Rfam assigns this 92-nucleotide sequence from Kytococcus aerolatus to the family "SAM riboswitch aptamer (S box leader)". The source organism's lineage runs through Bacteria, Actinomycetes, Micrococcales, Kytococcaceae and Kytococcus.
RNA sequence: ACGACAUCCAGAGCGGUGGAGAGAUCUGGCUCUUUGAAACCGCAGCAACCCCCCUGCACGGGCGAGGGUGCUCACGCCAGAAGCGAUGGAGG
Numbered sequence: 001a002c003g004a005c006a007u008c009c010a011g012a013g014c015g016g017u018g019g020a021g022a023g024a025u026c027u028g029g030c031u032c033u034u035u036g037a038a039a040c041c042g043c044a045g046c047a048a049c050c051c052c053c054c055u056g057c058a059c060g061g062g063c064g065a066g067g068g069u070g071c072u073c074a075c076g077c078c079a080g081a082a083g084c085g086a087u088g089g090a091g092g
Stems, first nucleotide, its partner, number of pairs: 002091001005088004013043005021032003026080004044072004049068002051064001053062002076084001
A search with the family's covariance model found it, with a score of 57 bits. Pairs were carried over by alignment from the consensus structure, which is taken from published work.